[Rfam]
RNA sequence: CAAAAAGGGCACAAGGUGGAUGCCUAAGCACCAAAUGGCGAAGAAGGACGUGGCGAACUGCGAAAAGCCUCGGUGAGCUGUAAGCGAGCUUAGACCCGGGGAUAUCCGAAUGGGGCAACCUGGCAGGUGGAAGACCUGUCAUUCCGCGAGGAAGGCGAACGGCGUGAACUGAAACAUCUUAGUAGCGCCAGGAAGAGAAAAUAAGAAUGAUUCCCUCAGUAGUGGCGAACGAACGGGGAAGAUGCCUAAACCGGUCUUAAGGCCGGGGUAGAGGGACAGCGUUGUCUGGAUAUUACUUAUAGACGAACCGAUCUGGAAAGGUCGACCGGAGGGGGUGACAGUCCCGUAGUUGAAAUAGGUAAUAUUUGGUAGCUGGAUCCCGAGUAGCCCGGGGCACGAGAAAUCCUGGGUGAAUCUGCGAGGACCAUCUCGUAAGGCAAAAUACAUUUGGUGACUGAUAGCGUAGCAGUACCGUGAGGGAAAGGUGAAAAGCACCCCGGGAGGGGAGUGAAAUAGAACCUGAAACCUUGUGCUUACAAG
Numbered sequence: 001c002a003a004a005a006a007g008g009g010c011a012c013a014a015g016g017u018g019g020a021u022g023c024c025u026a027a028g029c030a031c032c033a034a035a036u037g038g039c040g041a042a043g044a045a046g047g048a049c050g051u052g053g054c055g056a057a058c059u060g061c062g063a064a065a066a067g068c069c070u071c072g073g074u075g076a077g078c079u080g081u082a083a084g085c086g087a088g089c090u091u092a093g094a095c096c097c098g099g100g101g102a103u104a105u106c107c108g109a110a111u112g113g114g115g116c117a118a119c120c121u122g123g124c125a126g127g128u129g130g131a132a133g134a135c136c137u138g139u140c141a142u143u144c145c146g147c148g149a150g151g152a153a154g155g156c157g158a159a160c161g162g163c164g165u166g167a168a169c170u171g172a173a174a175c176a177u178c179u180u181a182g183u184a185g186c187g188c189c190a191g192g193a194a195g196a197g198a199a200a201a202u203a204a205g206a207a208u209g210a211u212u213c214c215c216u217c218a219g220u221a222g223u224g225g226c227g228a229a230c231g232a233a234c235g236g237g238g239a240a241g242a243u244g245c246c247u248a249a250a251c252c253g254g255u256c257u258u259a260a261g262g263c264c265g266g267g268g269u270a271g272a273g274g275g276a277c278a279g280c281g282u283u284g285u286c287u288g289g290a291u292a293u294u295a296c297u298u299a300u301a302g303a304c305g306a307a308c309c310g311a312u313c314u315g316g317a318a319a320g321g322u323c324g325a326c327c328g329g330a331g332g333g334g335g336u337g338a339c340a341g342u343c344c345c346g347u348a349g350u351u352g353a354a355a356u357a358g359g360u361a362a363u364a365u366u367u368g369g370u371a372g373c374u375g376g377a378u379c380c381c382g383a384g385u386a387g388c389c390c391g392g393g394g395c396a397c398g399a400g401a402a403a404u405c406c407u408g409g410g411u412g413a414a415u416c417u418g419c420g421a422g423g424a425c426c427a428u429c430u431c432g433u434a435a436g437g438c439a440a441a442a443u444a445c446a447u448u449u450g451g452u453g454a455c456u457g458a459u460a461g462c463g464u465a466g467c468a469g470u471a472c473c474g475u476g477a478g479g480g481a482a483a484g485g486u487g488a489a490a491a492g493c494a495c496c497c498c499g500g501g502a503g504g505g506g507a508g509u510g511a512a513a514u515a516g517a518a519c520c521u522g523a524a525a526c527c528u529u530g531u532g533c534u535u536a537c538a539a540g
Stems, first nucleotide, its partner, number of pairs: 007535010022520001023485002027456002029453009038156002046107003049062003068101006077089003112121003122140007142153004160191001161189005171178002201208002211442001212239005222230002243439004251266006273381003277375004288367013302351003308324001310323004327331001333345003387411008418433005472479002495506004